Source information
The record is an 87-nucleotide RNA from Oleispira antarctica, which matches "Glycine riboswitch aptamer" in Rfam. Pairs were carried over by alignment from the consensus structure. Lineage of the source: Bacteria > Pseudomonadota > Gammaproteobacteria > Oceanospirillales > Oleispira antarctica. A search with the family's covariance model found it, with a score of 62 bits.
RNA sequence: GCACCAACUGCAGGAGAGAGGCUUUCACUAGCCCGCCGAAGGCGCAAACUCCCAUAAACGCUCAGGCACACGGACUGCAGAAUCUGA
Numbered sequence: 001g002c003a004c005c006a007a008c009u010g011c012a013g014g015a016g017a018g019a020g021g022c023u024u025u026c027a028c029u030a031g032c033c034c035g036c037c038g039a040a041g042g043c044g045c046a047a048a049c050u051c052c053c054a055u056a057a058a059c060g061c062u063c064a065g066g067c068a069c070a071c072g073g074a075c076u077g078c079a080g081a082a083u084c085u086g087a
Base pairs, nucleotide, nucleotide: 008080009079010078011077012076013075020033021032022031023030035067036066037065038063039062042061043060044059048055
Dot-bracket structure: .......((((((......((((......)))).(((((..(((...(......)...))))).))).......)))))).......